[Rfam]
RNA sequence: GAGUUUCGAAGUCGCGUACUCCUCCUCCCAACGCGCUUCGAUAAGGGUGACGGCACUCCUCCUCCCAGUCGUCAGCCACACCAAAUGACGCUCACCGGAUCCUCCUCCCCCGGUGAGCGUUAUUU
Numbered sequence: 001g002a003g004u005u006u007c008g009a010a011g012u013c014g015c016g017u018a019c020u021c022c023u024c025c026u027c028c029c030a031a032c033g034c035g036c037u038u039c040g041a042u043a044a045g046g047g048u049g050a051c052g053g054c055a056c057u058c059c060u061c062c063u064c065c066c067a068g069u070c071g072u073c074a075g076c077c078a079c080a081c082c083a084a085a086u087g088a089c090g091c092u093c094a095c096c097g098g099a100u101c102c103u104c105c106u107c108c109c110c111c112g113g114u115g116a117g118c119g120u121u122a123u124u125u
Stems, first nucleotide, its partner, number of pairs: 007040003011036001013035005045077002048074007088120011